[Rfam]
The family of this 83-nucleotide sequence from Plantactinospora sp. BB1 is "SAH (S-adenosyl-L-homocysteine) riboswitch aptamer". A search with the family's covariance model found it, with a score of 42 bits.
RNA sequence: CGGGUCGAGAGGCGCUGCAACGGGCAGAGAUGCCCGCCACGCUCGACCCGAGGAUUCGAUCUUUCCAAGGGCGCCUCCGUUCC
Numbered sequence: 001c002g003g004g005u006c007g008a009g010a011g012g013c014g015c016u017g018c019a020a021c022g023g024g025c026a027g028a029g030a031u032g033c034c035c036g037c038c039a040c041g042c043u044c045g046a047c048c049c050g051a052g053g054a055u056u057c058g059a060u061c062u063u064u065c066c067a068a069g070g071g072c073g074c075c076u077c078c079g080u081u082c083c
Base pairs, nucleotide, nucleotide: 002049003048004047005046006045007044008043021036022035023034024033025032026031
For this family Rfam cites "Riboswitches that sense S-adenosylhomocysteine and activate genes involved in coenzyme recycling" (Wang et al., Mol Cell, 2008). The source organism's lineage runs through Bacteria, Bacillati, Actinomycetota, Micromonosporales and Plantactinospora. The base pairs follow the family's consensus structure, which is taken from published work.